Rfam assigns this 55-nucleotide RNA to the family "L17-Actino-Proteobacteria ribosomal protein leader". The base pairs follow the family's consensus structure, which is taken from published work.
RNA sequence: CCUGCGGACACAGUGUCCACAGGCCCGUUGCGGUACCUGGUACGGCCGCAGUCGG
Numbered sequence: 001c002c003u004g005c006g007g008a009c010a011c012a013g014u015g016u017c018c019a020c021a022g023g024c025c026c027g028u029u030g031c032g033g034u035a036c037c038u039g040g041u042a043c044g045g046c047c048g049c050a051g052u053c054g055g
Stems, first nucleotide, its partner, number of pairs: 001023004006018004025055003028051007